[Rfam]
RNA sequence: CCCUCGGCCACGCCGAGUCCCGCGGGCUUCCGCACAACGGACGCCCGGGGAGCCGGGGACCCACAUACCGGGCCGAACGGCCCUAGGGGUGAAUCCGUCGACCCGACGGUAGGGCGGCUCCACGCCCGAACCCGACAGCUAACCCGGUAGGCGCGAUGGAGAGGAGAA
Numbered sequence: 001c002c003c004u005c006g007g008c009c010a011c012g013c014c015g016a017g018u019c020c021c022g023c024g025g026g027c028u029u030c031c032g033c034a035c036a037a038c039g040g041a042c043g044c045c046c047g048g049g050g051a052g053c054c055g056g057g058g059a060c061c062c063a064c065a066u067a068c069c070g071g072g073c074c075g076a077a078c079g080g081c082c083c084u085a086g087g088g089g090u091g092a093a094u095c096c097g098u099c100g101a102c103c104c105g106a107c108g109g110u111a112g113g114g115c116g117g118c119u120c121c122a123c124g125c126c127c128g129a130a131c132c133c134g135a136c137a138g139c140u141a142a143c144c145c146g147g148u149a150g151g152c153g154c155g156a157u158g159g160a161g162a163g164g165a166g167a168a
Stems, first nucleotide, its partner, number of pairs: 011153004018051003052148006062086001087133003095109004112127004
Shown here is a 168-nucleotide RNA from Thermostaphylospora chromogena, a member of the family "c-di-AMP riboswitch aptamer (ydaO/yuaA leader)". For this family Rfam cites "New RNA motifs suggest an expanded scope for riboswitches in bacterial genetic control" (Barrick et al., Proc Natl Acad Sci U S A, 2004). The source organism's lineage runs through Bacteria, Bacillati, Actinomycetota, Actinomycetes and Thermostaphylospora.